Shown here is a 91-nucleotide sequence from Formicarius rufipectus, a member of the family "Small nucleolar RNA SNORD91 family". Rfam links the family to the GO terms RNA processing and nucleolus. It scores 57 bits against the family's covariance model.
RNA sequence: GCAGGAAGCCAGUGAUGUCUUAGCCGUGGUGUCUGAACCUGGCUGAAGGACUUGUGAAGACUCAUUUCAAGGCUCUGAGGCUUCCAGGACA
Numbered sequence: 001g002c003a004g005g006a007a008g009c010c011a012g013u014g015a016u017g018u019c020u021u022a023g024c025c026g027u028g029g030u031g032u033c034u035g036a037a038c039c040u041g042g043c044u045g046a047a048g049g050a051c052u053u054g055u056g057a058a059g060a061c062u063c064a065u066u067u068c069a070a071g072g073c074u075c076u077g078a079g080g081c082u083u084c085c086a087g088g089a090c091a
Stems, first nucleotide, its partner, number of pairs: 004085007
Dot-bracket structure: ...(((((((....................................................................)))))))......